[Rfam]
RNA sequence: UGUGACCGGCGUGCGCGGUGUCUGUCCGCGUUCAGUGCUGCAGUCUGUCUGUGUCUUACAGUCAUGGCCACAGUGCUCACGCCACACCUGCAGCCACAGAGACACUGGAGAUCAUAGUACUGGUCUAGUGACGUCUAUCAGACUCUCCACCACUGGCCGGCCUCCAUACUCUCCUACAAGC
Numbered sequence: 001u002g003u004g005a006c007c008g009g010c011g012u013g014c015g016c017g018g019u020g021u022c023u024g025u026c027c028g029c030g031u032u033c034a035g036u037g038c039u040g041c042a043g044u045c046u047g048u049c050u051g052u053g054u055c056u057u058a059c060a061g062u063c064a065u066g067g068c069c070a071c072a073g074u075g076c077u078c079a080c081g082c083c084a085c086a087c088c089u090g091c092a093g094c095c096a097c098a099g100a101g102a103c104a105c106u107g108g109a110g111a112u113c114a115u116a117g118u119a120c121u122g123g124u125c126u127a128g129u130g131a132c133g134u135c136u137a138u139c140a141g142a143c144u145c146u147c148c149a150c151c152a153c154u155g156g157c158c159g160g161c162c163u164c165c166a167u168a169c170u171c172u173c174c175u176a177c178a179a180g181c
Stems, first nucleotide, its partner, number of pairs: 013091003029081003035077001036075005043068003046064002050060003107174005120160006127154004133143003
Source information:
Small nucleolar RNA SNORA23: a 181-nucleotide RNA sequence from Megalops atlanticus. A search with the family's covariance model found it, with a score of 105 bits. For this family Rfam cites "RNomics: an experimental approach that identifies 201 candidates for novel, small, non-messenger RNAs in mouse" (Huttenhofer et al., EMBO J, 2001). The members of this family belong to the H/ACA class of snoRNAs which are thought to guide the sites of modification of uridines to pseudouridines. This family includes human snoRNA ACA23 (SNORA23) and mouse snoMBI-1. Its family is annotated with nucleolus and RNA processing in the Gene Ontology.